[Rfam]
RNA sequence: AGGAUAGUAUCUUUUUUAGGAACUAUACCUUAAGGUAUGUUUUUUGGUUAACUGACAGUUACAUAUUGUACCGCUUGGAGCCGGGACGGACCGAGACGGAAGG
Dot-bracket structure: ((((((((.((........))))))).)))........................................((((((((..((.....)).))))).)))....
About this RNA:
Rfam assigns this 103-nucleotide RNA sequence from Desulfocucumis palustris to the family "pan motif". The match comes from Rfam's covariance-model search (60 bits). Pairs were carried over by alignment from the consensus structure, which is taken from published work. Rfam classes the family as a cis-regulatory element.